[Rfam]
Rfam assigns this 97-nucleotide RNA sequence from Salvia splendens to the family "Small nucleolar RNA Z161/Z228".
RNA sequence: AGGCCAAAGGAUGAUUGUGGAUUUAAAUUUCUCACGACGGUCGUCUGAUACACUUUGUGUGAAUAUUGAUGUAUUUAUAAUAGAAUUAUGAGAGGCU
Numbered sequence: 001a002g003g004c005c006a007a008a009g010g011a012u013g014a015u016u017g018u019g020g021a022u023u024u025a026a027a028u029u030u031c032u033c034a035c036g037a038c039g040g041u042c043g044u045c046u047g048a049u050a051c052a053c054u055u056u057g058u059g060u061g062a063a064u065a066u067u068g069a070u071g072u073a074u075u076u077a078u079a080a081u082a083g084a085a086u087u088a089u090g091a092g093a094g095g096c097u
Stems, first nucleotide, its partner, number of pairs: 002097003051059003

It is annotated as a C/D-box small nucleolar RNA. For this family Rfam cites "The high diversity of snoRNAs in plants: identification and comparative study of 120 snoRNA genes from Oryza sativa" (Chen et al., Nucleic Acids Res, 2003). Gene Ontology terms of the family: RNA processing and nucleolus.